[Rfam]
RNA sequence: CCCCGUCGCAUAUGCGGGUCAUCAUAUGCACCUCCCUGUUGGACUGCCCCGGCCUGGUGCCGGGGUUUUUUU
Dot-bracket structure: .......(((((((........)))))))................((((((((.....))))))))......
RNA: Singlet oxygen resistance RNA X